A member of the RNA family "Mammalian CPEB3 ribozyme" from Alligator mississippiensis, 69 nucleotides long. Lineage of the source: Eukaryota > Opisthokonta > Euteleostomi > Sauria > Alligator.
RNA sequence: AGUGCAUGGCCAUAGCAGACGUGCUCAUGGUGUGGCCUGUCAGAUUGCAAUGAAUCUAUGAAUUCUGCU
Dot-bracket structure: .......[[[[..((((((.(((.......)))]]]]....(((((......)))))......))))))
Pairs were carried over by alignment from the consensus structure, which is taken from published work.